[Rfam]
A member of the RNA family "Eukaryotic large subunit ribosomal RNA" from Nephila pilipes, 424 nucleotides of a longer RNA. Gene Ontology terms of the family: structural constituent of ribosome and ribosome. The source organism's lineage runs through Eukaryota, Ecdysozoa, Panarthropoda, Arachnida and Nephila.
Nucleotides: 424
Stems, first nucleotide, its partner, number of pairs: 023054001024052005034041002064071002075102004085093002105322004112146005118140001119137007151262006158256001160254002168248002171245003177239007187203001189202004210214001217227002271292007299316005356363002379390004
Number, partner (000 for none) and nucleotide at each position: 001000c002000g003000a004000c005000c006000u007000c008000a009000g010000a011000c012000g013000g014000a015000c016000g017000a018000g019000a020000c021000u022000a023054c024052c025051c026050g027049c028048u029000g030000a031000a032000u033000u034041u035040a036000a037000g038000c039000a040035u041034a042000u043000u044000a045000a046000u047000a048028a049027g050026c051025g052024g053000u054023g055000g056000a057000a058000a059000a060000g061000a062000a063000a064071a065070c066000a067000a068000c069000a070065g071064u072000g073000a074000u075102u076101c077100c078099c079000c080000u081000a082000g083000u084000a085093g086092c087000g088000g089000c090000g091000a092086g093085c094000g095000a096000a097000c098000a099078g100077g101076g102075a103000g104000g105322a106321g107320c108319c109000c110000a111000g112146c113145g114144c115143c116142g117000a118140a119137u120136c121135c122134c123133c124132g125131c126000c127000u128000c129000g130000a131125g132124c133123g134122g135121g136120g137119a138000a139000a140118u141000g142116u143115g144114g145113c146112g147000u148000u149000u150000g151262g152261g153260c154259g155258a156257g157000u158256c159000g160254g161253g162000a163000g164000u165000g166000u167000g168248g169247a170000u171245c172244u173243g174000g175000a176000g177239u178238g179237c180236g181235c182234g183233g184000g185000a186000a187203g188000u189202c190201c191200c192199c193000a194000c195000g196000a197000u198000c199192g200191g201190g202189g203187c204000a205000u206000u207000u208000u209000c210214c211000u212000g213000a214210g215000a216000g217227g218226g219000u220000g221000u222000g223000a224000g225000g226218c227217c228000c229000g230000u231000u232000c233183u234182c235181g236180c237179g238178c239177g240000c241000c242000g243173u244172g245171g246000u247169u248168c249000c250000c251000u252000c253161u254160c255000g256158g257156u258155u259154c260153g261152c262151c263000c264000g265000c266000g267000a268000g269000u270000c271292g272291g273290g274289u275288u276287g277286c278000u279000u280000g281000g282000g283000a284000g285000u286277g287276c288275a289274g290273c291272c292271c293000u294000a295000a296000g297000a298000c299316g300315g301314g302313u303312g304000g305000u306000a307000a308000a309000c310000u311000c312303c313302a314301c315300c316299c317000a318000a319108g320107g321106c322105u323000a324000a325000a326000u327000a328000c329000g330000a331000c332000c333000g334000u335000g336000a337000g338000a339000c340000c341000g342000a343000u344000a345000g346000c347000a348000a349000a350000c351000a352000a353000g354000u355000a356363c357362c358000g359000u360000g361000a362357g363356g364000g365000a366000a367000a368000g369000u370000u371000g372000a373000a374000a375000a376000g377000a378000a379390c380389u381388u382387u383000g384000a385000a386000g387382a388381g389380a390379g391000a392000g393000u394000u395000c396000a397000a398000u399000a400000g401000a402000a403000c404000g405000u406000g407000a408000a409000a410000c411000u412000g413000c414000u415000c416000a417000g418000a419000g420000g421000g422000a423000a424000a